[Rfam]
RNA sequence: GGACGCGUAGCUCAGUUGGUUAGAGCGACGAGCUUAUGAGGUCGUUUGUGAUCCUCGUAGGUCGGGAGUUCGACUCUCCCCGUGUCCA
Dot-bracket structure: (((((((..((((.........)))).(((((.....................))))).....(((((.......)))))))))))).